This 295-nucleotide RNA sequence from Asparagus officinalis belongs to the Rfam family "Plant signal recognition particle RNA". The match comes from Rfam's covariance-model search (183 bits). Rfam classes the family as a non-coding RNA gene.
[Rfam]
RNA sequence: GCCGAGCUCAGUAGCGUGGGCUUGUAACCAAGCGGGGCAUUAAGUGGUCGUGAACGUUGGGCCUUGUAACUGGACCUGGUUGUGCAGUACUCUCUGCUGGCCCGCCCGUUCCAAGUUGGGCAGUGAUGCGUGUGGGCCGAGCGAAGGCUCGUUUCUUGAAGAGGAGGGCACCGCGUCAGGCUGGCUUCACAGAGCAGCGAAAACCUCCCGCUCUCAACGGUGGAAGGAUCACGGGCUGCUGUGCUGUGCAUCCGCGAUAGGCCCGGUUACAGUCCACCAACGAACCCACCUCUUU
Numbered sequence: 001g002c003c004g005a006g007c008u009c010a011g012u013a014g015c016g017u018g019g020g021c022u023u024g025u026a027a028c029c030a031a032g033c034g035g036g037g038c039a040u041u042a043a044g045u046g047g048u049c050g051u052g053a054a055c056g057u058u059g060g061g062c063c064u065u066g067u068a069a070c071u072g073g074a075c076c077u078g079g080u081u082g083u084g085c086a087g088u089a090c091u092c093u094c095u096g097c098u099g100g101c102c103c104g105c106c107c108g109u110u111c112c113a114a115g116u117u118g119g120g121c122a123g124u125g126a127u128g129c130g131u132g133u134g135g136g137c138c139g140a141g142c143g144a145a146g147g148c149u150c151g152u153u154u155c156u157u158g159a160a161g162a163g164g165a166g167g168g169c170a171c172c173g174c175g176u177c178a179g180g181c182u183g184g185c186u187u188c189a190c191a192g193a194g195c196a197g198c199g200a201a202a203a204c205c206u207c208c209c210g211c212u213c214u215c216a217a218c219g220g221u222g223g224a225a226g227g228a229u230c231a232c233g234g235g236c237u238g239c240u241g242u243g244c245u246g247u248g249c250a251u252c253c254g255c256g257a258u259a260g261g262c263c264c265g266g267u268u269a270c271a272g273u274c275c276a277c278c279a280a281c282g283a284a285c286c287c288a289c290c291u292c293u294u295u
Stems, first nucleotide, its partner, number of pairs: 001038003004023007028035002042294003046290003050286001052285001055282002057279001059277001060275002063272002067269007075261002078253002081250005087244003091241001098238007106227002109225005115218006122212003125155002128152001138151005156161001163208005174199003181192003
Taxonomically the source falls in Asparagus (Eukaryota, Viridiplantae, Streptophyta, Embryophyta). The base pairs follow the family's consensus structure, which is taken from published work.